Background:
Shown here is a 202-nucleotide RNA from Actinobacteria bacterium OK074, a member of the family "Streptomyces sRNA 4677". The source organism's lineage runs through Bacteria, Bacillati, Actinomycetota and Actinomycetes. The pairing is the family consensus, mapped onto this sequence.
RNA sequence: AGCGUCGAGCCCCGAGCCUUCUUGAUUUGGAAUGGGAGCGGUAGCUCAACCCACCCUCCCACCCUGCGAGUUGACCUGUAGCGUUCGGCUUGCGACGCACAGUCACAUGCGUCUAACGUUCGCUCAGACAAAAACUUCGGCCCCCGCCGGUGCGCCAACACCAUGCGGGGGCCUGACCGACGAGAUCGACAGGAACGAUCCG
Numbered sequence: 001a002g003c004g005u006c007g008a009g010c011c012c013c014g015a016g017c018c019u020u021c022u023u024g025a026u027u028u029g030g031a032a033u034g035g036g037a038g039c040g041g042u043a044g045c046u047c048a049a050c051c052c053a054c055c056c057u058c059c060c061a062c063c064c065u066g067c068g069a070g071u072u073g074a075c076c077u078g079u080a081g082c083g084u085u086c087g088g089c090u091u092g093c094g095a096c097g098c099a100c101a102g103u104c105a106c107a108u109g110c111g112u113c114u115a116a117c118g119u120u121c122g123c124u125c126a127g128a129c130a131a132a133a134a135c136u137u138c139g140g141c142c143c144c145c146g147c148c149g150g151u152g153c154g155c156c157a158a159c160a161c162c163a164u165g166c167g168g169g170g171g172c173c174u175g176a177c178c179g180a181c182g183a184g185a186u187c188g189a190c191a192g193g194a195a196c197g198a199u200c201c202g
Stems, first nucleotide, its partner, number of pairs: 004181004014045001059073001061071002064068001088117001139173005145167003149162004184200005
A search with the family's covariance model found it, with a score of 46 bits.